[Rfam]
RNA: Purine riboswitch aptamer
RNA sequence: GUGUAGAAUAGAGUCAAUAUUCGUAUAUCAUCGAUGAUAAGGAUCGAAAGUCUCUACCCUAAAACCGUAAAUUUUAGGACUACGAAGUAUGUAAAUAGAAGG
Numbered sequence: 001g002u003g004u005a006g007a008a009u010a011g012a013g014u015c016a017a018u019a020u021u022c023g024u025a026u027a028u029c030a031u032c033g034a035u036g037a038u039a040a041g042g043a044u045c046g047a048a049a050g051u052c053u054c055u056a057c058c059c060u061a062a063a064a065c066c067g068u069a070a071a072u073u074u075u076a077g078g079a080c081u082a083c084g085a086a087g088u089a090u091g092u093a094a095a096u097a098g099a100a101g102g
Base pairs, nucleotide, nucleotide: 020086021085022084023083024082025081031047032046033045034044035043058078059077060076061075062074063073064072